[Rfam]
RNA sequence: GCGUCCAUCGUCUAAAGGAUAGGACAGAGGUUUUCUAAACCUCCAGUAUAGGUUCGAAUCCUAUUGGACGUA
Numbered sequence: 001g002c003g004u005c006c007a008u009c010g011u012c013u014a015a016a017g018g019a020u021a022g023g024a025c026a027g028a029g030g031u032u033u034u035c036u037a038a039a040c041c042u043c044c045a046g047u048a049u050a051g052g053u054u055c056g057a058a059u060c061c062u063a064u065u066g067g068a069c070g071u072a
Base pairs, nucleotide, nucleotide: 001071002070003069004068005067006066007065010025011024012023013022027043028042029041030040031039048064049063050062051061052060
Notes:
A member of the RNA family "tRNA", 72 nucleotides long. The family's RNA type in Rfam is transfer RNA. Rfam links the family to the GO term triplet codon-amino acid adaptor activity. Transfer RNA (tRNA) molecules are approximately 80 nucleotides in length.